[Rfam]
RNA: U7 small nuclear RNA
Organism: Cebus imitator
RNA sequence: CACUGUCAGCUCUUUUAGAAUUUGUCCAGCAAGUUUUCUGGUUUUUACUAGAAAACCCCU
Number, nucleotide and partner (000 for none) at each position: 001c000002a000003c000004u000005g000006u000007c000008a000009g000010c000011u000012c000013u000014u000015u000016u000017a000018g000019a000020a000021u000022u000023u000024g000025u000026c000027c000028a000029g000030c000031a000032a000033g056034u055035u054036u053037u052038c051039u050040g049041g048042u047043u000044u000045u000046u000047a042048c041049u040050a039051g038052a037053a036054a035055a034056c033057c000058c000059c000060u000